[Rfam]
RNA: Bacterial RNase P class A
Organism: Rheinheimera mesophila
RNA sequence: GAGUUGGCCCAGACAAUCGCUGCCUGCGUAAGCAGGGGGAGGAAAGUCCGGGCUCCAUAGGGCAGGGUGCCAGGUAACGCCUGGGGGGCGCGAGCCUACGACCAGUGCAACAGAGAGCAAACCGCCGAUGGCCCACGCAAGUGGGAUCAGGUAAGGGUGAAAGGGUGCGGUAAGAGCGCACCGCGCGACUGGUAACAGUUCGUGGCACGGUAAACUCCACCCGGAGCAAGACCAAAUAGGCCCCCAUUGGCGCGGCCCGCGUUGGGGGCGGGUAGGUUGCUUGAGGCGUGCGGUGACGUACGUCCUAGAGGAAUGAUUGUCCACGACAGAACCCGGCUUAUCGGGCCGACUCACAC
Numbered sequence: 001g002a003g004u005u006g007g008c009c010c011a012g013a014c015a016a017u018c019g020c021u022g023c024c025u026g027c028g029u030a031a032g033c034a035g036g037g038g039g040a041g042g043a044a045a046g047u048c049c050g051g052g053c054u055c056c057a058u059a060g061g062g063c064a065g066g067g068u069g070c071c072a073g074g075u076a077a078c079g080c081c082u083g084g085g086g087g088g089c090g091c092g093a094g095c096c097u098a099c100g101a102c103c104a105g106u107g108c109a110a111c112a113g114a115g116a117g118c119a120a121a122c123c124g125c126c127g128a129u130g131g132c133c134c135a136c137g138c139a140a141g142u143g144g145g146a147u148c149a150g151g152u153a154a155g156g157g158u159g160a161a162a163g164g165g166u167g168c169g170g171u172a173a174g175a176g177c178g179c180a181c182c183g184c185g186c187g188a189c190u191g192g193u194a195a196c197a198g199u200u201c202g203u204g205g206c207a208c209g210g211u212a213a214a215c216u217c218c219a220c221c222c223g224g225a226g227c228a229a230g231a232c233c234a235a236a237u238a239g240g241c242c243c244c245c246a247u248u249g250g251c252g253c254g255g256c257c258c259g260c261g262u263u264g265g266g267g268g269c270g271g272g273u274a275g276g277u278u279g280c281u282u283g284a285g286g287c288g289u290g291c292g293g294u295g296a297c298g299u300a301c302g303u304c305c306u307a308g309a310g311g312a313a314u315g316a317u318u319g320u321c322c323a324c325g326a327c328a329g330a331a332c333c334c335g336g337c338u339u340a341u342c343g344g345g346c347c348g349a350c351u352c353a354c355a356c
Stems, first nucleotide, its partner, number of pairs: 001352010011341001012321007020039002023036005044339003048336005053226004060258004065222005070084005085099001086097004100217002105215002107211002122156002124152003129149003133145002164182006183206001184204005189198003230278004240269006249263005285304008